[Rfam]
RNA sequence: AAUCCGGUUGAUCCUGCCGGACCUGAUUGCUAUCGGAUUGGUACUAAGCCAUGCGAGUAAGUGUAGCAAUACACUGCAGACGGCUCAGUAACACGUGGUCAAGCUAACCUAUGGACGUGGAUAACCUCGGGAAACUGAGAAUAAACCGCGAUAGAUCAUGAUGCCUGGAAUGGCUCAUGGUCGAAAUAGUUUACUGCCGUAGGAUGCGACUGCGGCCUAUCAGUUUGUUGGUGAGGUAAUGGCCCACCAAGACUAUUACAGGUACGGGCUCUGAGAGGAGAAGCCCGGAGAUGGGUACUGAGACACGGACCCAGGCCCUAUGGGGCGCAGCAGGCGAGAAACCUUAGCAAUGUGCGAAAGCACGACUGGGUUAGUCCGAGUGAUUCCUGCUAAAGGAAUCUUUUGCCGGUCCUAAAAGCACCGGUGAAUAAGGGGUGGGCAAGUCUGGUGUCAGCCGCCGCGGUAAUACCAGCACCUCGAGUGAUCAGGACGUUUAUUG
Numbered sequence: 001a002a003u004c005c006g007g008u009u010g011a012u013c014c015u016g017c018c019g020g021a022c023c024u025g026a027u028u029g030c031u032a033u034c035g036g037a038u039u040g041g042u043a044c045u046a047a048g049c050c051a052u053g054c055g056a057g058u059a060a061g062u063g064u065a066g067c068a069a070u071a072c073a074c075u076g077c078a079g080a081c082g083g084c085u086c087a088g089u090a091a092c093a094c095g096u097g098g099u100c101a102a103g104c105u106a107a108c109c110u111a112u113g114g115a116c117g118u119g120g121a122u123a124a125c126c127u128c129g130g131g132a133a134a135c136u137g138a139g140a141a142u143a144a145a146c147c148g149c150g151a152u153a154g155a156u157c158a159u160g161a162u163g164c165c166u167g168g169a170a171u172g173g174c175u176c177a178u179g180g181u182c183g184a185a186a187u188a189g190u191u192u193a194c195u196g197c198c199g200u201a202g203g204a205u206g207c208g209a210c211u212g213c214g215g216c217c218u219a220u221c222a223g224u225u226u227g228u229u230g231g232u233g234a235g236g237u238a239a240u241g242g243c244c245c246a247c248c249a250a251g252a253c254u255a256u257u258a259c260a261g262g263u264a265c266g267g268g269c270u271c272u273g274a275g276a277g278g279a280g281a282a283g284c285c286c287g288g289a290g291a292u293g294g295g296u297a298c299u300g301a302g303a304c305a306c307g308g309a310c311c312c313a314g315g316c317c318c319u320a321u322g323g324g325g326c327g328c329a330g331c332a333g334g335c336g337a338g339a340a341a342c343c344u345u346a347g348c349a350a351u352g353u354g355c356g357a358a359a360g361c362a363c364g365a366c367u368g369g370g371u372u373a374g375u376c377c378g379a380g381u382g383a384u385u386c387c388u389g390c391u392a393a394a395g396g397a398a399u400c401u402u403u404u405g406c407c408g409g410u411c412c413u414a415a416a417a418g419c420a421c422c423g424g425u426g427a428a429u430a431a432g433g434g435g436u437g438g439g440c441a442a443g444u445c446u447g448g449u450g451u452c453a454g455c456c457g458c459c460g461c462g463g464u465a466a467u468a469c470c471a472g473c474a475c476c477u478c479g480a481g482u483g484a485u486c487a488g489g490a491c492g493u494u495u496a497u498u499g
Stems, first nucleotide, its partner, number of pairs: 004020005022489010033379009042337001048335003052332003057077003061074005084290003094214007103207002108203007116150004126139005155181007164173002188195002216262003223253003228250006235243001265287004269280004292313005315326004343369001345368003351364005382400007405425006432478006445472004454461002
RNA: Archaeal small subunit ribosomal RNA, nucleotides 1 to 499